[Rfam]
RNA sequence: GUUGCACCCAAACCCAAAGGUCACGCCCUGACCCGUGGUGUGAUUUUGUCUGGGUCGCAGACAGAACCAGAACCUUGUCGCCUUUCUCUGCUGCUGCUGUGCCUCUGAAAGUGAAUUCAAGGUCCGACAUGU
Numbered sequence: 001g002u003u004g005c006a007c008c009c010a011a012a013c014c015c016a017a018a019g020g021u022c023a024c025g026c027c028c029u030g031a032c033c034c035g036u037g038g039u040g041u042g043a044u045u046u047u048g049u050c051u052g053g054g055u056c057g058c059a060g061a062c063a064g065a066a067c068c069a070g071a072a073c074c075u076u077g078u079c080g081c082c083u084u085u086c087u088c089u090g091c092u093g094c095u096g097c098u099g100u101g102c103c104u105c106u107g108a109a110a111g112u113g114a115a116u117u118c119a120a121g122g123u124c125c126g127a128c129a130u131g132u
Base pairs, nucleotide, nucleotide: 002060003059004058005057008054009053019045020044021043022042023041024040025039026038027037070125072123073122074121075120076119082111083110084109085108086107090102091101
Dot-bracket structure: .((((..((.........(((((((((.........))))))))).......))..)))).........(.(((((.....(((((...((.........))....))))).......))))).).......
A member of the RNA family "Small nucleolar RNA SNORA68" from Kryptolebias marmoratus, 132 nucleotides long. About the family: U68 is a member of the H/ACA class of small nucleolar RNAs (snoRNAs) which act as guides in the the modification of uridines to pseudouridines. The base pairs follow the family's consensus structure, which was predicted with PFOLD. The literature on the family includes a 1997 paper in Genes Dev by Ganot et al., "The family of box ACA small nucleolar RNAs is defined by an evolutionarily conserved secondary structure and ubiquitous sequence elements essential for RNA accumulation". Rfam 15.1 lists 1,079 matches to the family in 643 species. Gene Ontology terms of the family: nucleolus and RNA processing.